This 72-nucleotide RNA sequence from Sciurus vulgaris belongs to the Rfam family "U1A polyadenylation inhibition element (PIE)".
RNA sequence: CCACACAGCAUUGUACCCAGAGUCUGUCCCCAGACAUUGCACCUGGCACUCUAAAUUAAAUUAAAUUAAUUU
Number, nucleotide and partner (000 for none) at each position: 001c000002c000003a000004c000005a052006c000007a050008g049009c000010a000011u000012u000013g000014u000015a000016c000017c046018c045019a044020g043021a000022g035023u034024c033025u032026g031027u000028c000029c000030c000031c026032a025033g024034a023035c022036a000037u000038u000039g000040c000041a000042c000043c020044u019045g018046g017047c000048a000049c008050u007051c000052u005053a000054a000055a000056u000057u000058a000059a000060a000061u000062u000063a000064a000065a000066u000067u000068a000069a000070u000071u000072u000
This family represents the U1A polyadenylation inhibition element (PIE). PIE is a regulatory RNA which is responsible for the regulation of the length of the polyA tail of the U1A pre-mRNA. The PIE is located in the U1A mRNA 3' UTR. PIE adopts a U-shaped structure, with binding sites for a single U1A protein at each bend and when complexed with the two proteins it blocks activity of poly(A) polymerase (PAP), and inhibits its activity.
The literature on the family includes a 2004 paper in Biochemistry by Clerte and Hall, "Global and Local Dynamics of the U1A Polyadenylation Inhibition Element (PIE) RNA and PIE RNA-U1A Complexes".